[Rfam]
RNA sequence: GAAAGGAAGGGAGCAAUACCAGCCCUCUUGAUAGAACAAGAAAUUGGUUAUUGCUCCCUUACU
Numbered sequence: 001g002a003a004a005g006g007a008a009g010g011g012a013g014c015a016a017u018a019c020c021a022g023c024c025c026u027c028u029u030g031a032u033a034g035a036a037c038a039a040g041a042a043a044u045u046g047g048u049u050a051u052u053g054c055u056c057c058c059u060u061a062c063u
Stems, first nucleotide, its partner, number of pairs: 007060012022045001026041005

The record is a 63-nucleotide sequence from Aldrovanda vesiculosa, which matches "Plastid-psbA-4 3UTR RNA" in Rfam. Rfam's curators write: Plastid psbA-4 is a non-coding RNA (ncRNA) present in plastids. It was identified in inverted repeat sequences in the 3 prime untranslate region (3UTR) of photosystem II quinone-binding protein (psbA). The source organism's lineage runs through Eukaryota, Magnoliopsida, Gunneridae, Pentapetalae and Aldrovanda. Its Rfam clan is "Plastid-psbA 3UTR RNA clan". It is one of the family's seed sequences.